RNA sequence: GCACCUCUCCCGACCUGGCACAACAUCCUGCUGAGAUGUUGUCUUCCGACCUGCAGUGUCACAUGUCGGCGGAGAUGC
Numbered sequence: 001g002c003a004c005c006u007c008u009c010c011c012g013a014c015c016u017g018g019c020a021c022a023a024c025a026u027c028c029u030g031c032u033g034a035g036a037u038g039u040u041g042u043c044u045u046c047c048g049a050c051c052u053g054c055a056g057u058g059u060c061a062c063a064u065g066u067c068g069g070c071g072g073a074g075a076u077g078c
Stems, first nucleotide, its partner, number of pairs: 001078003005074003010069005022040006048060003
The record is a 78-nucleotide RNA sequence from Fusarium vanettenii, which matches "bZIP non canonical Hac1/Xbp1 intron" in Rfam. bZIP intron RNA is a non-canonical intron that was first reported in HAC1 gene in yeast and XBP1 gene in Metazoa. The literature on the family includes a 2018 paper in mSphere by Iracane et al., "Identification of an Exceptionally Long Intron in the HAC1 Gene of Candida parapsilosis".